The record is a 137-nucleotide sequence from Rugosimonospora africana, which matches "Group II catalytic intron D1-D4-4" in Rfam.
Its family is annotated with Group II intron splicing in the Gene Ontology.
NCBI's taxonomy places the organism under Bacteria, Bacillati, Micromonosporales, Micromonosporaceae, Rugosimonospora.
Rfam 15.1 lists 840 matches to the family in 506 species.
The pairing is the family consensus, mapped onto this sequence.
A reference for the family is Bonen and Vogel (2001), "The ins and outs of group II introns", Trends Genet.
From the family's description: Group II introns are found in rRNA, tRNA and mRNA of organelles in fungi, plants and protists, and also in mRNA in bacteria.
The match comes from Rfam's covariance-model search (102 bits).
[Rfam]
RNA sequence: UUGCCGGUGGAAGUCCGGUCCGGGUAGCUGCCAGGAGGCCCGGUAGCAGACUGGCGGCGCCGGGGGGAAACGCCCGGCGUCGAAGCCCAGUGUCGAAGGCCCUUUGAGGGGGAGCAACUGAGCGGUCCGUAGCGUGA
Numbered sequence: 001u002u003g004c005c006g007g008u009g010g011a012a013g014u015c016c017g018g019u020c021c022g023g024g025u026a027g028c029u030g031c032c033a034g035g036a037g038g039c040c041c042g043g044u045a046g047c048a049g050a051c052u053g054g055c056g057g058c059g060c061c062g063g064g065g066g067g068a069a070a071c072g073c074c075c076g077g078c079g080u081c082g083a084a085g086c087c088c089a090g091u092g093u094c095g096a097a098g099g100c101c102c103u104u105u106g107a108g109g110g111g112g113a114g115c116a117a118c119u120g121a122g123c124g125g126u127c128c129g130u131a132g133c134g135u136g137a
Base pairs, nucleotide, nucleotide: 020043021042022041023040024039050091051090052089053088054087055082056081057080058079059078060077064073066071101111102110103109114130115129